[Rfam]
RNA sequence: AAAAACCAAUAAUCGUGCGGAUUAUACAAACCAGGACUAUAAAACCGUGUUGCUAGUAUGCCCUCUUCGGAGAUCAUGGCGUAAUCCUAGCGUCAAGUCCAUCGGAGAGAUCAUCUCGUUCAUCUCAGCGCUCUUUUGUGAGUCGGUUGCAAUUCCUUCUGGAUGCGCAAAAAACGAUUUGCAAGGGCCGGUAGAACGUACAGAC
Numbered sequence: 001a002a003a004a005a006c007c008a009a010u011a012a013u014c015g016u017g018c019g020g021a022u023u024a025u026a027c028a029a030a031c032c033a034g035g036a037c038u039a040u041a042a043a044a045c046c047g048u049g050u051u052g053c054u055a056g057u058a059u060g061c062c063c064u065c066u067u068c069g070g071a072g073a074u075c076a077u078g079g080c081g082u083a084a085u086c087c088u089a090g091c092g093u094c095a096a097g098u099c100c101a102u103c104g105g106a107g108a109g110a111u112c113a114u115c116u117c118g119u120u121c122a123u124c125u126c127a128g129c130g131c132u133c134u135u136u137u138g139u140g141a142g143u144c145g146g147u148u149g150c151a152a153u154u155c156c157u158u159c160u161g162g163a164u165g166c167g168c169a170a171a172a173a174a175c176g177a178u179u180u181g182c183a184a185g186g187g188c189c190g191g192u193a194g195a196a197c198g199u200a201c202a203g204a205c
Stems, first nucleotide, its partner, number of pairs: 009025006031105002034100004052091005057083006123196001125194001127192001130188005137183008150165001154163003